[Rfam]
RNA sequence: AAUCCGAAAAGGCAAAACAAUGGAAACACUGUGACGCAAAGCUAAAGGGCCUUAACUAUUCUUAUUAUGGCAGCCAGUUAUCGAA
Numbered sequence: 001a002a003u004c005c006g007a008a009a010a011g012g013c014a015a016a017a018c019a020a021u022g023g024a025a026a027c028a029c030u031g032u033g034a035c036g037c038a039a040a041g042c043u044a045a046a047g048g049g050c051c052u053u054a055a056c057u058a059u060u061c062u063u064a065u066u067a068u069g070g071c072a073g074c075c076a077g078u079u080a081u082c083g084a085a
Base pairs, nucleotide, nucleotide: 012037013036017032018031019030021028022027040079041078042077043076047075048074049071050070051069057064058063

Background: The record is an 85-nucleotide RNA from Psychrilyobacter sp. S5, which matches "c-di-GMP-I riboswitch aptamer" in Rfam. On this family, see Sudarsan et al., Science 2008: "Riboswitches in Eubacteria Sense the Second Messenger Cyclic Di-GMP". Its family is annotated with cyclic-di-GMP binding in the Gene Ontology. The family is grouped with related families in Rfam's "c-di-GMP_I riboswitch clan". Taxonomically the source falls in Psychrilyobacter (Bacteria, Fusobacteriati, Fusobacteriia, Fusobacteriaceae).